[Rfam]
RNA sequence: GGGAUUCCUUAUCUGUGUUUAAUACGUUUAAUUAUCUGGAGCCUGUCUUUCUGCACUCUGUGCUAAAAGCACAAAAAGACAGGCUCAUCAUUAUAACCCUCUCUCUGACGUGAC
Number, nucleotide and partner (000 for none) at each position: 001g099002g098003g097004a000005u000006u000007c000008c000009u000010u000011a000012u000013c000014u000015g000016u000017g000018u000019u000020u000021a000022a000023u000024a091025c000026g089027u000028u000029u000030a000031a000032u000033u000034a000035u000036c000037u000038g000039g086040a085041g084042c083043c082044u081045g080046u079047c078048u000049u000050u075051c000052u073053g072054c000055a000056c069057u068058c000059u066060g000061u000062g000063c000064u000065a000066a059067a000068a057069g056070c000071a000072c053073a052074a000075a050076a000077a000078g047079a046080c045081a044082g043083g042084c041085u040086c039087a000088u000089c026090a000091u024092u000093a000094u000095a000096a000097c003098c002099c001100u000101c000102u000103c000104u000105c000106u000107g000108a000109c000110g000111u000112g000113a000114c000
Rfam assigns this 114-nucleotide sequence from Erwinia tracheiphila to the family "tp2". By type it is a small RNA. For this family Rfam cites "Computational identification of noncoding RNAs in E. coli by comparative genomics" (Rivas et al., Curr Biol, 2001). The family's consensus secondary structure was predicted with RNAalifold.